A member of the RNA family "IS605-orfB-I RNA", 200 nucleotides long.

RNA sequence: UCUGGAUAAACUUGUAUUCAUCCAAGAGAAUGAAGCAAGUCACUUUACAGAAUUAGAAUAAGUAACACAUUUUGGGAUUGCCAAAGGCUUACAUAUAAGUGAAAUCCUUGAAUGACAGGAUAACCGUAUGUCCUUUAAUACAAUCUGUAUUAUAAAAAUAAUCUUGAAUAGCUUUAGAUAAGUUUUCAAGUUACGUUGAA
Numbered sequence: 001u002c003u004g005g006a007u008a009a010a011c012u013u014g015u016a017u018u019c020a021u022c023c024a025a026g027a028g029a030a031u032g033a034a035g036c037a038a039g040u041c042a043c044u045u046u047a048c049a050g051a052a053u054u055a056g057a058a059u060a061a062g063u064a065a066c067a068c069a070u071u072u073u074g075g076g077a078u079u080g081c082c083a084a085a086g087g088c089u090u091a092c093a094u095a096u097a098a099g100u101g102a103a104a105u106c107c108u109u110g111a112a113u114g115a116c117a118g119g120a121u122a123a124c125c126g127u128a129u130g131u132c133c134u135u136u137a138a139u140a141c142a143a144u145c146u147g148u149a150u151u152a153u154a155a156a157a158a159u160a161a162u163c164u165u166g167a168a169u170a171g172c173u174u175u176a177g178a179u180a181a182g183u184u185u186u187c188a189a190g191u192u193a194c195g196u197u198g199a200a
Stems, first nucleotide, its partner, number of pairs: 001051004006046001008044001010040006017034005022028001068114004075107005087100002090097001117134005123197001125195004129158001136152005163190006170183001